[Rfam]
RNA sequence: GAGUGCCACAACUCUUGUAGAAUUUACCUAGCAAGUUUUUCACUUUUUACUAGAAAAACCAAU
Dot-bracket structure: ..................................((((((((.(....).).)))))))....